[Rfam]
RNA sequence: AAAGGAGGCGUCCAAAGGGAUCGCAUUGAUCCCAACUCAAUUACACUAUUCUUUUUUUUUUUUCUUUCAUUAUAUUUAAUAUACCAUCUUUUUUGUAAUAUAUUUAACUAUAAUUCAUAUAUUUGGAUCAUGCCAUCUCUUUGGAUUCAUCCUU
Dot-bracket structure: .(((((.(.((((((((((((.((((.(((((............................................................................................))))))))).)))))))))))).).)))))
The record is a 154-nucleotide RNA from Salvia splendens, which matches "mir-393 microRNA precursor family" in Rfam. The literature on the family includes a 2012 paper in J Plant Physiol by Kruszka et al., "Role of microRNAs and other sRNAs of plants in their changing environments". It scores 78 bits against the family's covariance model. Lineage of the source: Eukaryota > Streptophytina > Tracheophyta > Mesangiospermae > core Calosphace. Pairs were carried over by alignment from the consensus structure.